RNA sequence: GGUUGCGAAUUUGAGGCCACAGCAGAAGUCCUCACAGCAUGGCCCUGUCAGAUUCCAGUGAGUUUGCAAAUUCUGCU
Numbered sequence: 001g002g003u004u005g006c007g008a009a010u011u012u013g014a015g016g017c018c019a020c021a022g023c024a025g026a027a028g029u030c031c032u033c034a035c036a037g038c039a040u041g042g043c044c045c046u047g048u049c050a051g052a053u054u055c056c057a058g059u060g061a062g063u064u065u066g067c068a069a070a071u072u073c074u075g076c077u
Stems, first nucleotide, its partner, number of pairs: 013045001015044004021077007028040002049066007
RNA: Mammalian CPEB3 ribozyme
Organism: Alligator sinensis